[Rfam]
mir-576 microRNA precursor family: a 90-nucleotide RNA from Homo sapiens. Taxonomically the source falls in Homo (Eukaryota, Chordata, Teleostomi, Simiiformes). Its family is annotated with miRNA-mediated post-transcriptional gene silencing and RISC complex in the Gene Ontology. The family's consensus secondary structure was predicted with RNAalifold.

RNA sequence: UACAAUCCAACGAGGAUUCUAAUUUCUCCACGUCUUUGGUAAUAAGGUUUGGCAAAGAUGUGGAAAAAUUGGAAUCCUCAUUCGAUUGGU
Numbered sequence: 001u002a003c004a005a006u007c008c009a010a011c012g013a014g015g016a017u018u019c020u021a022a023u024u025u026c027u028c029c030a031c032g033u034c035u036u037u038g039g040u041a042a043u044a045a046g047g048u049u050u051g052g053c054a055a056a057g058a059u060g061u062g063g064a065a066a067a068a069u070u071g072g073a074a075u076c077c078u079c080a081u082u083c084g085a086u087u088g089g090u
Stems, first nucleotide, its partner, number of pairs: 003088005009082002012079014027064012040051003